Annotation
A member of the RNA family "Alphaproteobacterial ar15" from Allomesorhizobium alhagi, 116 nucleotides long. Clan: suhB sRNA clan. The family has 61 seed sequences and 316 matches in Rfam 15.1. Rfam links the family to the GO term protein binding. On this family, see del Val et al., RNA Biol 2012: "A survey of sRNA families in alpha-proteobacteria". Pairs were carried over by alignment from the consensus structure. It scores 46 bits against the family's covariance model.
RNA sequence: AUCUUUCGGGCGCGUUCCUCCUCCCAUUAGCGCCUGGGAGUGUUCCCCUCUGGAGGUUUAGCCUUAAUCGGCACUUCCAACAAACUCAGCCGGGUCUUCUUAGAUCCGGCUUUUUU
Numbered sequence: 001a002u003c004u005u006u007c008g009g010g011c012g013c014g015u016u017c018c019u020c021c022u023c024c025c026a027u028u029a030g031c032g033c034c035u036g037g038g039a040g041u042g043u044u045c046c047c048c049u050c051u052g053g054a055g056g057u058u059u060a061g062c063c064u065u066a067a068u069c070g071g072c073a074c075u076u077c078c079a080a081c082a083a084a085c086u087c088a089g090c091c092g093g094g095u096c097u098u099c100u101u102a103g104a105u106c107c108g109g110c111u112u113u114u115u116u
Stems, first nucleotide, its partner, number of pairs: 001041001003040003007036003012033004051079007088111006095104003